[Rfam]
RNA: Group I catalytic intron
Organism: Scytalidium lignicola
RNA sequence: GGACACAUCUUAAGAGGGUCGUGAGAGCGACGUAAAAGGCGAUCGCUAGUGGGUUGUUCAACUAACCUGCGACACUGUCAAAUUGCGGGGAGUCCCUUAGAGCCUUAACUACCGCAGCUACUGUACAUCGAAAGAUAUAGUGCGCACCAGGGUAAUGACCUCGGGGAUGGUAACAACGUUAAGGAUUGGGUAAUCGCGCAGCCAAGUCCUAAGGGUGCCCUUCUGGGGCACCGAUGGAUGCAGUUCAACGACUAGACGGUAGUGGGUUUGGUGUGCUGAGUAGCUGUAAUAGUGAAAACCAUCAGGCUUAAGGUAUAGUCUACUGCCUGAUCGAAAGGUCAGG
Numbered sequence: 001g002g003a004c005a006c007a008u009c010u011u012a013a014g015a016g017g018g019u020c021g022u023g024a025g026a027g028c029g030a031c032g033u034a035a036a037a038g039g040c041g042a043u044c045g046c047u048a049g050u051g052g053g054u055u056g057u058u059c060a061a062c063u064a065a066c067c068u069g070c071g072a073c074a075c076u077g078u079c080a081a082a083u084u085g086c087g088g089g090g091a092g093u094c095c096c097u098u099a100g101a102g103c104c105u106u107a108a109c110u111a112c113c114g115c116a117g118c119u120a121c122u123g124u125a126c127a128u129c130g131a132a133a134g135a136u137a138u139a140g141u142g143c144g145c146a147c148c149a150g151g152g153u154a155a156u157g158a159c160c161u162c163g164g165g166g167a168u169g170g171u172a173a174c175a176a177c178g179u180u181a182a183g184g185a186u187u188g189g190g191u192a193a194u195c196g197c198g199c200a201g202c203c204a205a206g207u208c209c210u211a212a213g214g215g216u217g218c219c220c221u222u223c224u225g226g227g228g229c230a231c232c233g234a235u236g237g238a239u240g241c242a243g244u245u246c247a248a249c250g251a252c253u254a255g256a257c258g259g260u261a262g263u264g265g266g267u268u269u270g271g272u273g274u275g276c277u278g279a280g281u282a283g284c285u286g287u288a289a290u291a292g293u294g295a296a297a298a299c300c301a302u303c304a305g306g307c308u309u310a311a312g313g314u315a316u317a318g319u320c321u322a323c324u325g326c327c328u329g330a331u332c333g334a335a336a337g338g339u340c341a342g343g
Stems, first nucleotide, its partner, number of pairs: 003033002009027003038044001073264005079258001084200004088195002094190003201244002206239004214232005248321001250320005266307008328341005